[Rfam]
RNA sequence: GGGGCAAUAUGGAGAUGUUAUAUUGUCUUCGACAGGGAAGAUGACAUAAAAAUUAUGUUCAAUAGGAUUAUGUGGAGACUU
Numbered sequence: 001g002g003g004g005c006a007a008u009a010u011g012g013a014g015a016u017g018u019u020a021u022a023u024u025g026u027c028u029u030c031g032a033c034a035g036g037g038a039a040g041a042u043g044a045c046a047u048a049a050a051a052a053u054u055a056u057g058u059u060c061a062a063u064a065g066g067a068u069u070a071u072g073u074g075g076a077g078a079c080u081u
Stems, first nucleotide, its partner, number of pairs: 001081003005075001008072002
RNA: Small nucleolar RNA SNORD115